[Rfam]
RNA sequence: AAGCAAAUAAUAUUUAAUUUUCAUAUAAUCCUUGAAUAUGGCAGGGAGUAUCUACUAGAAACCUUAAAUUUCUAUCUAUGAGAAGCUAUAAAUAUAGG
Numbered sequence: 001a002a003g004c005a006a007a008u009a010a011u012a013u014u015u016a017a018u019u020u021u022c023a024u025a026u027a028a029u030c031c032u033u034g035a036a037u038a039u040g041g042c043a044g045g046g047a048g049u050a051u052c053u054a055c056u057a058g059a060a061a062c063c064u065u066a067a068a069u070u071u072c073u074a075u076c077u078a079u080g081a082g083a084a085g086c087u088a089u090a091a092a093u094a095u096a097g098g
Base pairs, nucleotide, nucleotide: 018084019083020082021081022080023079024078025077029047030046031045032044033043034042056074057073058072059071060070061069